[Rfam]
RNA sequence: CCGCAACGCAAGGAGGUCAGCCAUGGGACUCACACAUUCCUUGAAUGUUCUGAUGAUCAGUGCAGCGUUCCUCUUCAUCGCAACAAUGAUUUUCAUUUGAUGCGACGGCGCAGUCCGAUAGAAAAGACGAACCACAAGAACAAUAGCUAACCCUUUCAGUGACGAACGUCACGAGAAUGCAUGGCCCCGGGGACGGUGCCGUGCAUU
Numbered sequence: 001c002c003g004c005a006a007c008g009c010a011a012g013g014a015g016g017u018c019a020g021c022c023a024u025g026g027g028a029c030u031c032a033c034a035c036a037u038u039c040c041u042u043g044a045a046u047g048u049u050c051u052g053a054u055g056a057u058c059a060g061u062g063c064a065g066c067g068u069u070c071c072u073c074u075u076c077a078u079c080g081c082a083a084c085a086a087u088g089a090u091u092u093u094c095a096u097u098u099g100a101u102g103c104g105a106c107g108g109c110g111c112a113g114u115c116c117g118a119u120a121g122a123a124a125a126g127a128c129g130a131a132c133c134a135c136a137a138g139a140a141c142a143a144u145a146g147c148u149a150a151c152c153c154u155u156u157c158a159g160u161g162a163c164g165a166a167c168g169u170c171a172c173g174a175g176a177a178u179g180c181a182u183g184g185c186c187c188c189g190g191g192g193a194c195g196g197u198g199c200c201g202u203g204c205a206u207u
Stems, first nucleotide, its partner, number of pairs: 015049002018047002025041004176207010187196002
Rfam assigns this 207-nucleotide RNA sequence from Sinorhizobium sp. BG8 to the family "Rhizobiales sRNA Atu_C9". The base pairs follow the family's consensus structure, which was predicted with WAR. For this family Rfam cites "Deep sequencing uncovers numerous small RNAs on all four replicons of the plant pathogen Agrobacterium tumefaciens" (Wilms et al., RNA Biol, 2012). The match comes from Rfam's covariance-model search (80 bits). Taxonomically the source falls in Sinorhizobium (Bacteria, Pseudomonadota, Alphaproteobacteria, Hyphomicrobiales).